[Rfam]
RNA sequence: UGUCUCUAGCAAAAUUCAUUUGUAAAUUAGAAGUAGUGGACUGAUCUCCUUGGAUGAGCAACCAAUUCUGUGGGAUG
Numbered sequence: 001u002g003u004c005u006c007u008a009g010c011a012a013a014a015u016u017c018a019u020u021u022g023u024a025a026a027u028u029a030g031a032a033g034u035a036g037u038g039g040a041c042u043g044a045u046c047u048c049c050u051u052g053g054a055u056g057a058g059c060a061a062c063c064a065a066u067u068c069u070g071u072g073g074g075a076u077g
Base pairs, nucleotide, nucleotide: 001077002076003075004074005073006072
Small nucleolar RNA R21: a 77-nucleotide sequence from Actinidia chinensis. A reference for the family is Barneche et al. (2001), "Identification of 66 box C/D snoRNAs in Arabidopsis thaliana: extensive gene duplications generated multiple isoforms predicting new ribosomal RNA 2'-O-methylation sites", J Mol Biol. By type it is a C/D-box small nucleolar RNA. NCBI's taxonomy places the organism under Eukaryota, Tracheophyta, Mesangiospermae, Gunneridae, Actinidia chinensis.